[Rfam]
The record is a 90-nucleotide sequence from Vulpes vulpes, which matches "mir-8799 microRNA precursor family" in Rfam. Pairs were carried over by alignment from the consensus structure, which was predicted with RNAalifold. Clan: mir-8791 microRNA precursor clan. NCBI's taxonomy places the organism under Eukaryota, Opisthokonta, Chordata, Gnathostomata, Vulpes.

RNA sequence: UGGGGGAGGCCAGAUCCUGGCCCUGUCCCCAUCGCCCGGUGCUCCCGGGCCUGUGCUGUUGGAUUCGGGCUCCCGGCCGCGCAGCCCCCU
Numbered sequence: 001u002g003g004g005g006g007a008g009g010c011c012a013g014a015u016c017c018u019g020g021c022c023c024u025g026u027c028c029c030c031a032u033c034g035c036c037c038g039g040u041g042c043u044c045c046c047g048g049g050c051c052u053g054u055g056c057u058g059u060u061g062g063a064u065u066c067g068g069g070c071u072c073c074c075g076g077c078c079g080c081g082c083a084g085c086c087c088c089c090u
Base pairs, nucleotide, nucleotide: 002089003088004087005086006085009082010081011079013077016076017075019073020072022069023068024067025066026063027062029061030058031057033055034054035053039051041050042049043048